[Rfam]
RNA sequence: GGAUUACUCCCAGUAUCACAAGGUACUACGGGGAGCUGACAUGUGCAAUGCACAGGGUCAGAAUCCGAAGUUUUUGGAAAGCUCUUCCGGGGAUAUCCGGUGGAGCGAA
Numbered sequence: 001g002g003a004u005u006a007c008u009c010c011c012a013g014u015a016u017c018a019c020a021a022g023g024u025a026c027u028a029c030g031g032g033g034a035g036c037u038g039a040c041a042u043g044u045g046c047a048a049u050g051c052a053c054a055g056g057g058u059c060a061g062a063a064u065c066c067g068a069a070g071u072u073u074u075u076g077g078a079a080a081g082c083u084c085u086u087c088c089g090g091g092g093a094u095a096u097c098c099g100g101u102g103g104a105g106c107g108a109a
Stems, first nucleotide, its partner, number of pairs: 007035002009031002013027001017023001037060004042054004083107001085105005091098002
Dot-bracket structure: ......((((..(...(.....)...)..))..)).((((.((((.....))))..))))......................(.(((((.((....))..))))).)..
RNA: SL2 RNA
Organism: Ancylostoma duodenale